[Rfam]
RNA sequence: GGAGAAAACAAAUUGGAACAGUUUGUGUUUUGUUUUGUGUUUUGUUGGAUUCGUUACUCUCCACCGUCGCCGCCAUGUACAAUUCUCAAACUCUGACUUCUUGGAGGCAAUUCUUCCAAUUUGUUCCAACAUCACAAAACAAAACACAAACUGUUCCAAUUUGUUUUCUCA
Number, nucleotide and partner (000 for none) at each position: 001g000002g170003a169004g168005a167006a166007a165008a164009c163010a162011a161012a160013u159014u158015g157016g156017a155018a154019c153020a152021g151022u150023u149024u148025g147026u146027g145028u144029u143030u142031u141032g140033u139034u138035u137036u136037g135038u134039g133040u000041u000042u000043u131044g130045u129046u128047g127048g126049a125050u000051u000052c000053g000054u000055u000056a000057c000058u000059c000060u000061c000062c000063a000064c000065c000066g000067u000068c000069g000070c104071c103072g102073c000074c000075a000076u000077g097078u096079a094080c000081a092082a000083u000084u000085c000086u000087c000088a000089a000090a000091c000092u081093c000094u079095g000096a078097c077098u000099u000100c000101u000102u072103g071104g070105a000106g000107g000108c000109a000110a000111u000112u000113c000114u000115u000116c000117c000118a000119a000120u000121u000122u000123g000124u000125u049126c048127c047128a046129a045130c044131a043132u000133c039134a038135c037136a036137a035138a034139a033140c032141a031142a030143a029144a028145c027146a026147c025148a024149a023150a022151c021152u020153g019154u018155u017156c016157c015158a014159a013160u012161u011162u010163g009164u008165u007166u006167u005168c004169u003170c002171a000
Overview
Shown here is a 171-nucleotide RNA from Arabidopsis thaliana, a member of the family "MIR5998 microRNA precursor family". It is one of the family's seed sequences. Taxonomically the source falls in Arabidopsis (Eukaryota, Spermatophyta, Gunneridae, Camelineae). Its family is annotated with miRNA-mediated post-transcriptional gene silencing and RISC complex in the Gene Ontology.